Source information:
Shown here is a 118-nucleotide sequence from Panax ginseng, a member of the family "MIR6135 microRNA precursor family". Pairs were carried over by alignment from the consensus structure, which was predicted with RNAalifold.

[Rfam]
RNA sequence: AUGAAGUUUAUUUUGGGUAAGUUGGUCAAUUGACUAAUAGAAUACUGACACGCAGGCGAGUUCUAUGUGUGUAGUAUUUAUUGGCUCAAUUGACCAACUUACAAAAAAAUAACUUCAU
Number, nucleotide and partner (000 for none) at each position: 001a118002u117003g116004a115005a114006g113007u112008u111009u000010a000011u107012u106013u105014u104015g000016g000017g102018u101019a100020a099021g098022u097023u096024g095025g094026u093027c092028a091029a090030u089031u088032g087033a000034c000035u083036a082037a081038u080039a079040g000041a078042a077043u076044a075045c000046u073047g000048a072049c000050a070051c069052g000053c067054a066055g000056g000057c000058g000059a000060g000061u000062u000063c000064u000065a000066u054067g053068u000069g051070u050071g000072u048073a046074g000075u044076a043077u042078u041079u039080a038081u037082u036083g035084g000085c000086u000087c032088a031089a030090u029091u028092g027093a026094c025095c024096a023097a022098c021099u020100u019101a018102c017103a000104a014105a013106a012107a011108a000109a000110u000111a008112a007113c006114u005115u004116c003117a002118u001